[Rfam]
RNA sequence: GGACGGUGACGAUUUCAUCAGUGAAAGGUCUCGUUCGUCGUAACGGUUGUUUUCAACAGCCUUGCCGACCAUCCUGAUAUAUCACCACCCAUAAACCGAGUCC
Number, nucleotide and partner (000 for none) at each position: 001g103002g102003a101004c100005g000006g000007u000008g000009a000010c000011g000012a000013u000014u000015u000016c000017a000018u000019c000020a000021g000022u000023g000024a000025a000026a000027g000028g000029u000030c000031u000032c000033g000034u000035u000036c000037g000038u000039c000040g000041u000042a000043a000044c000045g000046g000047u000048u000049g062050u058051u000052u000053u000054c000055a000056a000057c000058a050059g000060c000061c000062u049063u000064g000065c000066c000067g000068a000069c000070c000071a000072u000073c000074c000075u000076g000077a000078u000079a000080u000081a000082u000083c000084a000085c000086c000087a000088c000089c000090c000091a000092u000093a000094a000095a000096c000097c000098g000099a000100g004101u003102c002103c001
The family of this 103-nucleotide sequence from Corchorus olitorius is "Small nucleolar RNA Z43".
Rfam links the family to the GO terms nucleolus and RNA processing.
Taxonomically the source falls in Corchorus (Eukaryota, Embryophyta, Magnoliopsida, eudicotyledons).
The family's RNA type in Rfam is C/D-box small nucleolar RNA.